Shown here is an 80-nucleotide sequence, a member of the family "skipping-rope RNA". It is one of the family's seed sequences.
[Rfam]
RNA sequence: CUCUAUUGAGGUCGGAAAUGGCACCCGACACACUCUGAAAAGAGUACCUGAGAUGCAAGAGUGCCGCCUUGCCAAUAGUA
Numbered sequence: 001c002u003c004u005a006u007u008g009a010g011g012u013c014g015g016a017a018a019u020g021g022c023a024c025c026c027g028a029c030a031c032a033c034u035c036u037g038a039a040a041a042g043a044g045u046a047c048c049u050g051a052g053a054u055g056c057a058a059g060a061g062u063g064c065c066g067c068c069u070u071g072c073c074a075a076u077a078g079u080a
Stems, first nucleotide, its partner, number of pairs: 003078006011029005019066005031050001032045004055072005